The family of this 94-nucleotide RNA sequence from Triticum aestivum is "Small nucleolar RNA Z152/R70/R12/". Rfam 15.1 lists 604 matches to the family in 220 species. A search with the family's covariance model found it, with a score of 64 bits. Gene Ontology terms of the family: nucleolus and RNA processing.

RNA sequence: GAUGCGAUGAUGAUUCAUAUAGGUUUUUGGCAGUGGUGGCACCUGUCACCGUGAGCCUGCAAACCAAAAACGACUUCUCUUUCCACUGAGCAUU
Numbered sequence: 001g002a003u004g005c006g007a008u009g010a011u012g013a014u015u016c017a018u019a020u021a022g023g024u025u026u027u028u029g030g031c032a033g034u035g036g037u038g039g040c041a042c043c044u045g046u047c048a049c050c051g052u053g054a055g056c057c058u059g060c061a062a063a064c065c066a067a068a069a070a071c072g073a074c075u076u077c078u079c080u081u082u083c084c085a086c087u088g089a090g091c092a093u094u
Stems, first nucleotide, its partner, number of pairs: 001094005
The organism belongs to Triticum, within Eukaryota.